[Rfam]
RNA: SAM (S-adenosyl methionine) riboswitch aptamer
RNA sequence: GGUUACGAGUGUCAGCCGCCCCGCCGUCCCGGCGCGGGCAAAGCCCCGGCUCGCUGACCGGCAACCCUCUGUGUUCGCGGCGGGGUGCCCCGGGUGAUGACCAGGCCCAGUCCGACGGUCGUGCUGGGCAAGCGCGGACC
Numbered sequence: 001g002g003u004u005a006c007g008a009g010u011g012u013c014a015g016c017c018g019c020c021c022c023g024c025c026g027u028c029c030c031g032g033c034g035c036g037g038g039c040a041a042a043g044c045c046c047c048g049g050c051u052c053g054c055u056g057a058c059c060g061g062c063a064a065c066c067c068u069c070u071g072u073g074u075u076c077g078c079g080g081c082g083g084g085g086u087g088c089c090c091c092g093g094g095u096g097a098u099g100a101c102c103a104g105g106c107c108c109a110g111u112c113c114g115a116c117g118g119u120c121g122u123g124c125u126g127g128g129c130a131a132g133c134g135c136g137g138a139c140c
Base pairs, nucleotide, nucleotide: 001102002101003100004099009059011058012057013056014055015054016053060089061088062087065085066084067083069080070079105129106128107127108126109125110124111123113121114120
Dot-bracket structure: ((((....(.((((((....................................)))))))(((..(((.((........))..))).))).........))))..(((((((.((.....)).)))))))...........